[Rfam]
RNA: Small nucleolar RNA SNORA70
RNA sequence: CUACAGCUAAUAAGAUGAUCAGACUCCUUUGCUCUUGGGAGCUCAGUGUGUGAUGGCCGCAAGCAGCAGCCUUCUCAGCAGGGCACACAGCCCGUUGCAUACAUGGGUUAUCCUUGAAGGCAGGU
Dot-bracket structure: .((((............((....((((..........))))....)).)))).........................((.........(((((...........)))))..........))....